[Rfam]
RNA sequence: AUAGCGGAAACCGAAAAGCUAAAAGAGUAGGUG
Numbered sequence: 001a002u003a004g005c006g007g008a009a010a011c012c013g014a015a016a017a018g019c020u021a022a023a024a025g026a027g028u029a030g031g032u033g
Base pairs, nucleotide, nucleotide: 003020004019005018010032011031012030
DUF805b RNA: a 33-nucleotide RNA sequence. The sequence is in the family's curated seed alignment.